[Rfam]
RNA: Ribosomal S15 leader
Organism: Neiella litorisoli
RNA sequence: GCCAGCCGCUGAAUUAGUGAUCGGCGCUGGUUUUAUACAUUUUAGGAGACUGAUAUGUCACUAACUACUGAAAAGAAAGCAGCGAUUGUUGCUGAAUUCGCUCAAGGCGAA
Numbered sequence: 001g002c003c004a005g006c007c008g009c010u011g012a013a014u015u016a017g018u019g020a021u022c023g024g025c026g027c028u029g030g031u032u033u034u035a036u037a038c039a040u041u042u043u044a045g046g047a048g049a050c051u052g053a054u055a056u057g058u059c060a061c062u063a064a065c066u067a068c069u070g071a072a073a074a075g076a077a078a079g080c081a082g083c084g085a086u087u088g089u090u091g092c093u094g095a096a097u098u099c100g101c102u103c104a105a106g107g108c109g110a111a
Stems, first nucleotide, its partner, number of pairs: 007026006043064001045062002048059001